[Rfam]
Nucleotides: 107
Base pairs, nucleotide, nucleotide: 001028002027004024005023006022007021008020010019011018075103076102077101078099079098080097081096082095085093086092
Number, partner (000 for none) and nucleotide at each position: 001028u002027a003000a004024a005023c006022g007021g008020c009000a010019u011018c012000c013000u014000u015000c016000g017000g018011g019010a020008g021007c022006u023005g024004u025000a026000g027002u028001a029000a030000c031000a032000a033000a034000g035000g036000c037000u038000g039000u040000u041000u042000c043000a044000a045000a046000c047000u048000u049000u050000a051000a052000c053000a054000a055000a056000a057000u058000a059000c060000u061000g062000a063000u064000u065000a066000a067000c068000u069000u070000a071000c072000a073000a074000a075103c076102c077101g078099c079098u080097u081096g082095g083000a084000g085093c086092c087000a088000c089000u090000g091000u092086g093085g094000a095082c096081c097080g098079a099078g100000a101077c102076g103075g104000a105000a106000g107000g
A member of the RNA family "pan motif" from Thermanaerosceptrum fracticalcis, 107 nucleotides long. The family's RNA type in Rfam is cis-regulatory element. Lineage of the source: Bacteria > Bacillota > Clostridia > Peptococcaceae > Thermanaerosceptrum.